[Rfam]
RNA sequence: AUAUAUACUGAGUGGCUAGAUUGUUAUGGUUUCAGAGACCAUAACAAUCUAGCCACUCAGUGUAUAU
Numbered sequence: 001a002u003a004u005a006u007a008c009u010g011a012g013u014g015g016c017u018a019g020a021u022u023g024u025u026a027u028g029g030u031u032u033c034a035g036a037g038a039c040c041a042u043a044a045c046a047a048u049c050u051a052g053c054c055a056c057u058c059a060g061u062g063u064a065u066a067u
Base pairs, nucleotide, nucleotide: 004064005063006062007061008060009059010058011057012056013055014054015053016052017051019049020048021047022046023045024044025043026042027041028040